Rfam assigns this 54-nucleotide RNA sequence from Rhinopomastus cyanomelas to the family "Editing element of GABA-3 exon 9". Rfam classes the family as a cis-regulatory element. Rfam 15.1 lists 4,208 matches to the family in 654 species. Lineage of the source: Eukaryota > Deuterostomia > Archosauria > Theropoda > Rhinopomastus. Pairs were carried over by alignment from the consensus structure, which is taken from published work. It scores 64 bits against the family's covariance model.
[Rfam]
RNA sequence: AAAGUAGCGUAUGCCACAGCUAUGGAUUGGUUUAUUGCAGUUUGUUAUGCGUUC
Numbered sequence: 001a002a003a004g005u006a007g008c009g010u011a012u013g014c015c016a017c018a019g020c021u022a023u024g025g026a027u028u029g030g031u032u033u034a035u036u037g038c039a040g041u042u043u044g045u046u047a048u049g050c051g052u053u054c
Base pairs, nucleotide, nucleotide: 002053003052007050008049010047011046013045014044016041017040019038020037022035023034024033025032026031